[Rfam]
RNA sequence: CGGGAUCAACCGACGUUAGGGAAUUCGGCAAUCUGGCCCCGUAAGUUCGCGAUAAGGGGUGCCUGCCUCGGAAAGAGGCAGGUCGCAGUGACUCGGACGCUCCGACUGUCUAGUAACAACAUAGGUGACCGCAAAUCCGCAAGGACUCGUACGGUCACUGAAUCCUGCCCAGUGCGGGUAUCUGAACACCUCGUACAAGAGGACGAAGGACCCGUCAACGGCGGGGGUAACUAUGACCCUCUUAAGGUAGCGUAGUACCUUGCCGCUUCAGUAGCGGCUUGCAUGAAUGGAUUAACGAGAGCGUCGCUGUCCCAACGUUGGGCCCGGUGAACCAUACGUUCCAGUGCGGAGUCUGGAGA
Numbered sequence: 001c002g003g004g005a006u007c008a009a010c011c012g013a014c015g016u017u018a019g020g021g022a023a024u025u026c027g028g029c030a031a032u033c034u035g036g037c038c039c040c041g042u043a044a045g046u047u048c049g050c051g052a053u054a055a056g057g058g059g060u061g062c063c064u065g066c067c068u069c070g071g072a073a074a075g076a077g078g079c080a081g082g083u084c085g086c087a088g089u090g091a092c093u094c095g096g097a098c099g100c101u102c103c104g105a106c107u108g109u110c111u112a113g114u115a116a117c118a119a120c121a122u123a124g125g126u127g128a129c130c131g132c133a134a135a136u137c138c139g140c141a142a143g144g145a146c147u148c149g150u151a152c153g154g155u156c157a158c159u160g161a162a163u164c165c166u167g168c169c170c171a172g173u174g175c176g177g178g179u180a181u182c183u184g185a186a187c188a189c190c191u192c193g194u195a196c197a198a199g200a201g202g203a204c205g206a207a208g209g210a211c212c213c214g215u216c217a218a219c220g221g222c223g224g225g226g227g228u229a230a231c232u233a234u235g236a237c238c239c240u241c242u243u244a245a246g247g248u249a250g251c252g253u254a255g256u257a258c259c260u261u262g263c264c265g266c267u268u269c270a271g272u273a274g275c276g277g278c279u280u281g282c283a284u285g286a287a288u289g290g291a292u293u294a295a296c297g298a299g300a301g302c303g304u305c306g307c308u309g310u311c312c313c314a315a316c317g318u319u320g321g322g323c324c325c326g327g328u329g330a331a332c333c334a335u336a337c338g339u340u341c342c343a344g345u346g347c348g349g350a351g352u353c354u355g356g357a358g359a
Stems, first nucleotide, its partner, number of pairs: 001326004010321008019312003036060005045050001061083009084088001096305007103297002107121003124159008132149001136145003162292004167222003172219002174215005181210003189202004223241006242246001262278006340357005

This 359-nucleotide part of an RNA from Natronomonas pharaonis belongs to the Rfam family "Archaeal large subunit ribosomal RNA".
The organism belongs to Natronomonas pharaonis, within Archaea.
Pairs were carried over by alignment from the consensus structure, which is taken from published work.
It is one of the family's seed sequences.
Clan: LSU clan.